[Rfam]
RNA sequence: GUUGGGACCGGUUGGGACCAGUCGUGUGGGCAAAUGAAGUGUUUUGUCCACUGUUGCAGUCUUCCUAGAGUGAAGUGGAGGUCUCUGUCUGCUUUAGGAGAGCCAACUGAAGUAGAUCGUUCCCCUCCGUACAUG
Numbered sequence: 001g002u003u004g005g006g007a008c009c010g011g012u013u014g015g016g017a018c019c020a021g022u023c024g025u026g027u028g029g030g031c032a033a034a035u036g037a038a039g040u041g042u043u044u045u046g047u048c049c050a051c052u053g054u055u056g057c058a059g060u061c062u063u064c065c066u067a068g069a070g071u072g073a074a075g076u077g078g079a080g081g082u083c084u085c086u087g088u089c090u091g092c093u094u095u096a097g098g099a100g101a102g103c104c105a106a107c108u109g110a111a112g113u114a115g116a117u118c119g120u121u122c123c124c125c126u127c128c129g130u131a132c133a134u135g
Stems, first nucleotide, its partner, number of pairs: 004065003009059001011057002026051006036043002077128005085119001087117003091113007
Small Cajal body specific RNA 3: a 135-nucleotide RNA from Struthio camelus. The family is grouped with related families in Rfam's "SCARNA3 clan". The literature on the family includes a 2002 paper in EMBO J by Darzacq et al., "Cajal body-specific small nuclear RNAs: a novel class of 2'-O-methylation and pseudouridylation guide RNAs". Pairs were carried over by alignment from the consensus structure, which was predicted with RNAalifold. The match comes from Rfam's covariance-model search (102 bits). By type it is a small Cajal body RNA. scaRNAs are a specific class of small nuclear RNAs which localise to the Cajal bodies and guide the modification of RNA polymerase II transcribed spliceosomal RNAs U1, U2, U4, U5 and U12. Rfam links the family to the GO terms Cajal body, RNA processing and nucleolus.